[Rfam]
RNA sequence: UUUCAGGACAUACUGAAGAGGAUGUCAAGAAUGCAAUUGGGGUCCUCA
Numbered sequence: 001u002u003u004c005a006g007g008a009c010a011u012a013c014u015g016a017a018g019a020g021g022a023u024g025u026c027a028a029g030a031a032u033g034c035a036a037u038u039g040g041g042g043u044c045c046u047c048a
Stems, first nucleotide, its partner, number of pairs: 002041005018047006
Rfam assigns this 48-nucleotide sequence to the family "Pseudoknot of influenza A virus gene". The base pairs follow the family's consensus structure, which is taken from published work. Rfam classes the family as a cis-regulatory element.